[Rfam]
RNA sequence: AUAUUGAUAUACGGGUGCUUGUGUAAUACCAGGCUGAGAACAUACCGUCAAACUCGAACAAGUUAAUACUUGCGUGAGGAUUAUUUGAUAUUGAUGG
Number, nucleotide and partner (000 for none) at each position: 001a000002u000003a000004u000005u000006g085007a084008u083009a082010u000011a048012c047013g046014g045015g000016u042017g034018c033019u032020u031021g030022u000023g000024u000025a000026a000027u000028a000029c000030c021031a020032g019033g018034c017035u000036g000037a000038g000039a000040a000041c000042a016043u000044a000045c014046c013047g012048u011049c000050a000051a000052a000053c078054u077055c076056g075057a000058a000059c072060a071061a070062g069063u000064u000065a000066a000067u000068a000069c062070u061071u060072g059073c000074g000075u056076g055077a054078g053079g000080a000081u000082u009083a008084u007085u006086u000087g000088a000089u000090a000091u000092u000093g000094a000095u000096g000097g000
This 97-nucleotide sequence belongs to the Rfam family "TPP riboswitch aptamer (THI element)".